The record is an 85-nucleotide RNA sequence, which matches "Peptidase-S11 RNA" in Rfam.
[Rfam]
RNA sequence: GCUAUGAUGACCUUUGCCAGCCGGUGUAUAUCCAUCCUCACCGGCGGUGUACGUUAUCACGUGCGUGAAUAAUUAUCUGAAGCCU
Numbered sequence: 001g002c003u004a005u006g007a008u009g010a011c012c013u014u015u016g017c018c019a020g021c022c023g024g025u026g027u028a029u030a031u032c033c034a035u036c037c038u039c040a041c042c043g044g045c046g047g048u049g050u051a052c053g054u055u056a057u058c059a060c061g062u063g064c065g066u067g068a069a070u071a072a073u074u075a076u077c078u079g080a081a082g083c084c085u
Stems, first nucleotide, its partner, number of pairs: 016048003020045007049064006
It is annotated as a cis-regulatory element.